[Rfam]
RNA sequence: AAGAAAGUGACUGCCGCCCCGCACAGGGGCGAAGCUAAUAAACCAAGAACAAAGCAAGUUUCAUGGGAGCGCAAGCGCAUCAAACGGUGUAGAAGCCCCAACCCCAAGCGCCAGCGAACUACUA
Numbered sequence: 001a002a003g004a005a006a007g008u009g010a011c012u013g014c015c016g017c018c019c020c021g022c023a024c025a026g027g028g029g030c031g032a033a034g035c036u037a038a039u040a041a042a043c044c045a046a047g048a049a050c051a052a053a054g055c056a057a058g059u060u061u062c063a064u065g066g067g068a069g070c071g072c073a074a075g076c077g078c079a080u081c082a083a084a085c086g087g088u089g090u091a092g093a094a095g096c097c098c099c100a101a102c103c104c105c106a107a108g109c110g111c112c113a114g115c116g117a118a119c120u121a122c123u124a
Stems, first nucleotide, its partner, number of pairs: 011092004015031006058085003108115002
Dot-bracket structure: ..........((((((((((.....))))))..........................(((......................)))...))))...............((....)).........
This 124-nucleotide RNA sequence from Caballeronia glathei belongs to the Rfam family "Burkholderia sRNA Bp1_Cand684_SIPHT". It is annotated as a small RNA. A reference for the family is Khoo et al. (2012), "Computational discovery and RT-PCR validation of novel Burkholderia conserved and Burkholderia pseudomallei unique sRNAs", BMC Genomics. The match comes from Rfam's covariance-model search (54 bits). Rfam 15.1 lists 176 matches to the family in 44 species. Pairs were carried over by alignment from the consensus structure, which was predicted with RNAalifold.